[Rfam]
RNA sequence: GGCGUAAAGGGCACGCAGGCGGUUAAUUAAGUUGGAUGUGAAAUCCCUGGGCUCAACCUAGGAAUGGCAUUCAAAACUGAUUAGCUAGAGUCUUGUAGAGGGGGGUAGAAUUCCAUGUGUAGCGGUGAAAUGCGUAGAGAUAUGGAGGAAUACCAGUGGCGAAAGCGGCCCCCUGGACAAAUACUGACGCUCAUGUGCGAAAGCGUGGGGAGCAAACAGGAUUAGAUACCCUGGUAGUCCACGCUGUAAACGAUGUCGAUUUGGAGGUUGUAGUCAUGAACUGUGGCCUCCGGAGCUAACGCGUUAAAUCGACCGCCUGGGGAGUACGGCCGCAAGGCUAAAACUCAAAUGAAU
Number, nucleotide and partner (000 for none) at each position: 001g317002g316003c315004g000005u000006a000007a000008a000009g314010g000011g198012c197013a196014c195015g000016c000017a000018g191019g190020c189021g000022g085023u084024u083025a082026a081027u080028u079029a000030a078031g077032u074033u073034g072035g071036a070037u069038g068039u067040g000041a000042a000043a000044u000045c000046c062047c061048u060049g059050g058051g057052c000053u000054c000055a000056a000057c051058c050059u049060a048061g047062g046063a000064a000065u000066g000067g039068c038069a037070u036071u035072c034073a033074a032075a000076a000077c031078u030079g028080a027081u026082u025083a024084g023085c022086u000087a000088g000089a185090g184091u183092c000093u180094u179095g178096u177097a000098g000099a000100g174101g173102g172103g171104g170105g169106u168107a151108g000109a000110a000111u147112u146113c145114c144115a143116u142117g141118u140119g000120u000121a000122g133123c132124g131125g000126u000127g000128a000129a000130a000131u124132g123133c122134g000135u000136a000137g000138a000139g000140a118141u117142a116143u115144g114145g113146a112147g111148g000149a000150a000151u107152a000153c000154c000155a000156g000157u000158g000159g166160c165161g000162a000163a000164a000165g160166c159167g000168g106169c105170c104171c103172c102173c101174u100175g000176g000177a096178c095179a094180a093181a000182u000183a091184c090185u089186g000187a000188c000189g020190c019191u018192c000193a000194u000195g014196u013197g012198c011199g000200a000201a000202a000203g244204c243205g242206u241207g240208g239209g000210g000211a000212g238213c237214a000215a000216a000217c233218a232219g231220g230221a000222u000223u000224a000225g000226a000227u000228a000229c000230c220231c219232u218233g217234g000235u000236a000237g213238u212239c208240c207241a206242c205243g204244c203245u000246g000247u000248a000249a000250a000251c000252g000253a000254u000255g313256u312257c311258g310259a309260u308261u000262u000263g291264g290265a289266g288267g287268u286269u285270g284271u283272a282273g281274u280275c000276a000277u000278g000279a000280a274281c273282u272283g271284u270285g269286g268287c267288c266289u265290c264291c263292g000293g000294a000295g302296c301297u000298a000299a000300c000301g296302c295303g000304u000305u000306a000307a000308a260309u259310c258311g257312a256313c255314c009315g003316c002317c001318u000319g346320g345321g344322g000323a000324g000325u000326a000327c000328g339329g338330c337331c336332g000333c000334a000335a000336g331337g330338c329339u328340a000341a000342a000343a000344c321345u320346c319347a000348a000349a000350u000351g000352a000353a000354u000